Rfam assigns this 97-nucleotide RNA sequence from Micromonospora deserti to the family "Glycine riboswitch aptamer". A reference for the family is Mandal et al. (2004), "A glycine-dependent riboswitch that uses cooperative binding to control gene expression", Science.
Nucleotides: 097
Base pairs, nucleotide, nucleotide: 006092007091008090009089010088011087012086013085020040021039022038023037024036025035026034042077043076044075045073046072049071050070051069056064
Number, partner (000 for none) and nucleotide at each position: 001000a002000c003000c004000a005000c006092c007091c008090a009089c010088g011087u012086g013085g014000g015000a016000g017000a018000g019000a020040c021039c022038g023037c024036c025035c026034g027000g028000c029000g030000u031000a032000c033000c034026c035025g036024g037023g038022c039021g040020g041000c042077g043076c044075c045073g046072a047000a048000g049071g050070g051069g052000c053000a054000g055000a056064u057000u058000c059000u060000c061000c062000c063000c064056g065000g066000a067000a068000c069051c070050u071049c072046u073045c074000a075044g076043g077042c078000a079000a080000a081000a082000g083000g084000a085013c086012c087011a088010c089009g090008u091007g092006g093000g094000c095000a096000g097000g